[Rfam]
RNA sequence: GUCGAACUCAGUAACGCGGGCUUGUGAUCCAAGUGGAGACAAUAAGGGGAUGGGACGUUGGGUCGAUCUCAUUGGGCCGGGUUCGGGUUGGGCUAUAUUCUGGCCCGCCCAUUCCAAGUUGGGAGUUGAGGCAUGGGCUUCGAGCGAAGGCUCGGGUCUCAUGUCUUCUAGAGUGGGGGAGACCGCGUGAGGCUGGUUUCACAGAGCAGCGUCCACCUCCCGCUCUUGACGGUGGAAGGAUUACGGGCCAUUGCCUUCCGAGCCCACUAUGACCCAAUAAGCCGCUCCGAUUGGACCAUCACUUU
Numbered sequence: 001g002u003c004g005a006a007c008u009c010a011g012u013a014a015c016g017c018g019g020g021c022u023u024g025u026g027a028u029c030c031a032a033g034u035g036g037a038g039a040c041a042a043u044a045a046g047g048g049g050a051u052g053g054g055a056c057g058u059u060g061g062g063u064c065g066a067u068c069u070c071a072u073u074g075g076g077c078c079g080g081g082u083u084c085g086g087g088u089u090g091g092g093c094u095a096u097a098u099u100c101u102g103g104c105c106c107g108c109c110c111a112u113u114c115c116a117a118g119u120u121g122g123g124a125g126u127u128g129a130g131g132c133a134u135g136g137g138c139u140u141c142g143a144g145c146g147a148a149g150g151c152u153c154g155g156g157u158c159u160c161a162u163g164u165c166u167u168c169u170a171g172a173g174u175g176g177g178g179g180a181g182a183c184c185g186c187g188u189g190a191g192g193c194u195g196g197u198u199u200c201a202c203a204g205a206g207c208a209g210c211g212u213c214c215a216c217c218u219c220c221c222g223c224u225c226u227u228g229a230c231g232g233u234g235g236a237a238g239g240a241u242u243a244c245g246g247g248c249c250a251u252u253g254c255c256u257u258c259c260g261a262g263c264c265c266a267c268u269a270u271g272a273c274c275c276a277a278u279a280a281g282c283c284g285c286u287c288c289g290a291u292u293g294g295a296c297c298a299u300c301a302c303u304u305u
Base pairs, nucleotide, nucleotide: 001040002039003038004023005022007020008019009018028037029036030035044305045304046303047302049300050299051298052297053296056293057292058290059289060288061286062285063284065282069280071278072277073276074275075274076273078271079264080263082261083260085258086257090256091255092254094253095252101250102249103248104247105246106245107244109239110238112237113236114235115234116233118230119229120228121227122226123225124224125223126222128167129166130165131164132163133162134161135160136159137158139156140155141154142153143152144151145150168173175220176219177218178217179216185212186211187210188209193204194203195202
RNA: Plant signal recognition particle RNA